[Rfam]
RNA sequence: GGCGAGCAAGCGCUGGGUUAAACUCCGAGUUGCCUUACGGCGGCAGCAUCCACUGCGAUGUGUAUCAGGAGCCAGGGGCUCGCCACCCU
Numbered sequence: 001g002g003c004g005a006g007c008a009a010g011c012g013c014u015g016g017g018u019u020a021a022a023c024u025c026c027g028a029g030u031u032g033c034c035u036u037a038c039g040g041c042g043g044c045a046g047c048a049u050c051c052a053c054u055g056c057g058a059u060g061u062g063u064a065u066c067a068g069g070a071g072c073c074a075g076g077g078g079c080u081c082g083c084c085a086c087c088c089u
Base pairs, nucleotide, nucleotide: 001084002083003082004081005080006079007078011076013075014074015073016072023071024070025069026068029044030043031042032041033040034039047060048059049058050057
A member of the RNA family "DUF3800-VII RNA" from Asticcacaulis sp. YBE204, 89 nucleotides long. Taxonomically the source falls in Asticcacaulis (Bacteria, Pseudomonadati, Pseudomonadota, Caulobacteraceae). By type it is a small RNA. It is one of the family's seed sequences.